[Rfam]
RNA sequence: CGGGUCGAGAGGCGCUGCAACGGACGCGAGUCCGCCACGCUCGACCCGGUAGACGUGCAGCAAGGGCGCCUCCGAUCA
Numbered sequence: 001c002g003g004g005u006c007g008a009g010a011g012g013c014g015c016u017g018c019a020a021c022g023g024a025c026g027c028g029a030g031u032c033c034g035c036c037a038c039g040c041u042c043g044a045c046c047c048g049g050u051a052g053a054c055g056u057g058c059a060g061c062a063a064g065g066g067c068g069c070c071u072c073c074g075a076u077c078a
Stems, first nucleotide, its partner, number of pairs: 002047007021034005
The record is a 78-nucleotide RNA sequence from Pseudonocardia cypriaca, which matches "SAH (S-adenosyl-L-homocysteine) riboswitch aptamer" in Rfam. NCBI's taxonomy places the organism under Bacteria, Bacillati, Actinomycetota, Pseudonocardiales, Pseudonocardia. The match comes from Rfam's covariance-model search (40 bits). The base pairs follow the family's consensus structure, which is taken from published work.